Background: The record is a 95-nucleotide RNA from Corynebacterium renale, which matches "Bacterial small signal recognition particle RNA" in Rfam. The family's consensus secondary structure is taken from published work. Clan: SRP clan.

Nucleotides: 095
Stems, first nucleotide, its partner, number of pairs: 004089010014077001017075004024067005034059003042051003
Number, partner (000 for none) and nucleotide at each position: 001000g002000c003000c004089g005088g006087a007086u008085c009084c010083c011082g012081c013080g014077c015000g016000g017075c018074g019073g020072u021000u022000a023000u024067c025066u026065u027064g028063u029000g030000a031000a032000c033000u034059c035058c036057c037000c038000c039000a040000g041000g042051g043050c044049a045000g046000g047000a048000a049044u050043g051042c052000a053000g054000c055000a056000a057036g058035g059034g060000u061000c062000a063028a064027c065026g066025a067024g068000c069000u070000c071000u072020a073019c074018c075017g076000g077014g078000u079000g080013c081012g082011c083010g084009g085008g086007g087006u088005c089004c090000c091000c092000u093000u094000a095000u